chrB-b RNA: a 55-nucleotide RNA.
Rfam classes the family as a cis-regulatory element.
The family's consensus secondary structure is taken from published work.
RNA sequence: CGGGGAUUGCAGCCUCCCCGUCGUCACCAAGACGCUCACGGCGUCCAAGGUCUGC
Number, nucleotide and partner (000 for none) at each position: 001c020002g019003g018004g017005g016006a015007u000008u000009g055010c054011a053012g052013c000014c000015u006016c005017c004018c003019c002020g001021u000022c000023g000024u000025c000026a000027c000028c000029a000030a000031g045032a044033c043034g042035c041036u000037c000038a000039c000040g000041g035042c034043g033044u032045c031046c000047a000048a000049g000050g000051u000052c012053u011054g010055c009